[Rfam]
RNA sequence: UGCUAUGAGUAAUUCGGCAGGAUGAGAACCUGCUGCAGGUUCGAGUCGAACGCAGUGAGACAGCGGAGCCGUUUGCGGCGACGGCCCGAAGGGCGAGUCUCAGGAUGAGACGAGUGUAUCCUGCACAAUCCUCCC
Numbered sequence: 001u002g003c004u005a006u007g008a009g010u011a012a013u014u015c016g017g018c019a020g021g022a023u024g025a026g027a028a029c030c031u032g033c034u035g036c037a038g039g040u041u042c043g044a045g046u047c048g049a050a051c052g053c054a055g056u057g058a059g060a061c062a063g064c065g066g067a068g069c070c071g072u073u074u075g076c077g078g079c080g081a082c083g084g085c086c087c088g089a090a091g092g093g094c095g096a097g098u099c100u101c102a103g104g105a106u107g108a109g110a111c112g113a114g115u116g117u118a119u120c121c122u123g124c125a126c127a128a129u130c131c132u133c134c135c
Stems, first nucleotide, its partner, number of pairs: 017124005023118001033095001040090004047057002064083002068079004

The family of this 135-nucleotide RNA sequence from Cedecea neteri is "RtT RNA". About the family: This family represents a bacterial cis-regulatory element known as RtT RNA. The exact function of RtT is unknown although it is thought that it may be involved in changing the cellular response in relation to amino acid starvation. Its family is annotated with cellular response to amino acid starvation in the Gene Ontology. The match comes from Rfam's covariance-model search (59 bits). The family has 57 seed sequences and 651 matches in Rfam 15.1. Taxonomically the source falls in Cedecea (Bacteria, Pseudomonadati, Gammaproteobacteria, Enterobacteriaceae). For this family Rfam cites "A novel RNA product of the tyrT operon of Escherichia coli" (Bosl and Kersten, Nucleic Acids Res, 1991). It is annotated as a cis-regulatory element.